The record is a 206-nucleotide sequence from Pararobbsia silviterrae, which matches "Burkholderia sRNA 11" in Rfam. Rfam links the family to the GO term bacterial biofilm matrix. Pairs were carried over by alignment from the consensus structure, which was predicted with RNAfold. A search with the family's covariance model found it, with a score of 71 bits. Rfam's curators write: Identified by RNA-seq, RACE and Northern blot. Strongly expressed in biofilm.
RNA sequence: GCACUUUUGCACUGGGGGUGCCCGUGCGGAAGACAGAGGCCACUAUCCUUAGUGAGCCCGAUAGGGCGAACGGCGGUUACCGUGUCGACGACGGCAAUCCCGCCAUGGAGGGGAUCUGCACCCACAUGAGGUUGCCUGUCACCUCUAAGCCCGAAUGCGCUGCGUGCGCACACACAAAGGCCCCCGCGACGCGGGGGCCUUUACUU
Numbered sequence: 001g002c003a004c005u006u007u008u009g010c011a012c013u014g015g016g017g018g019u020g021c022c023c024g025u026g027c028g029g030a031a032g033a034c035a036g037a038g039g040c041c042a043c044u045a046u047c048c049u050u051a052g053u054g055a056g057c058c059c060g061a062u063a064g065g066g067c068g069a070a071c072g073g074c075g076g077u078u079a080c081c082g083u084g085u086c087g088a089c090g091a092c093g094g095c096a097a098u099c100c101c102g103c104c105a106u107g108g109a110g111g112g113g114a115u116c117u118g119c120a121c122c123c124a125c126a127u128g129a130g131g132u133u134g135c136c137u138g139u140c141a142c143c144u145c146u147a148a149g150c151c152c153g154a155a156u157g158c159g160c161u162g163c164g165u166g167c168g169c170a171c172a173c174a175c176a177a178a179g180g181c182c183c184c185c186g187c188g189a190c191g192c193g194g195g196g197g198c199c200u201u202u203a204c205u206u
Stems, first nucleotide, its partner, number of pairs: 002036001004032007014023003038058003041054004064152004073103003076099001080094004157169004176202012